RNA sequence: CACAGUGCUCUUCUUCCUUCGGAUCGUCCGGCACGUGCCUGCCGGGAAAGAGGCCUGACC
Dot-bracket structure: .........(((.(((...........((((((......))))))))).)))........
Numbered sequence: 001c002a003c004a005g006u007g008c009u010c011u012u013c014u015u016c017c018u019u020c021g022g023a024u025c026g027u028c029c030g031g032c033a034c035g036u037g038c039c040u041g042c043c044g045g046g047a048a049a050g051a052g053g054c055c056u057g058a059c060c
Stems, first nucleotide, its partner, number of pairs: 010052003014048003028045006